Rfam assigns this 78-nucleotide RNA from Schistosoma haematobium to the family "mir-3492 microRNA precursor family". The match comes from Rfam's covariance-model search (62 bits).

[Rfam]
RNA sequence: AGCUUUUCGAAUCCAUGCUGAGAUUUCGUCUGAUACCAGCCCAUUAGGGCUGAUCAAACUUCCAAGAUAAGUGAAGUU
Numbered sequence: 001a002g003c004u005u006u007u008c009g010a011a012u013c014c015a016u017g018c019u020g021a022g023a024u025u026u027c028g029u030c031u032g033a034u035a036c037c038a039g040c041c042c043a044u045u046a047g048g049g050c051u052g053a054u055c056a057a058a059c060u061u062c063c064a065a066g067a068u069a070a071g072u073g074a075a076g077u078u
Stems, first nucleotide, its partner, number of pairs: 002077005008071001011068003016064002020061003024058003028054003